[Rfam]
RNA sequence: CCGAUGGGGUCUGCGAAUGCCCCACGAGGCGUCAUGCCGGAAUUUCGCGUCCAGUCUCAAAAGUAGGACGUAAAUCAUG
Numbered sequence: 001c002c003g004a005u006g007g008g009g010u011c012u013g014c015g016a017a018u019g020c021c022c023c024a025c026g027a028g029g030c031g032u033c034a035u036g037c038c039g040g041a042a043u044u045u046c047g048c049g050u051c052c053a054g055u056c057u058c059a060a061a062a063g064u065a066g067g068a069c070g071u072a073a074a075u076c077a078u079g
Base pairs, nucleotide, nucleotide: 005024006023007022008021009020010019047071048070049069050068051067052066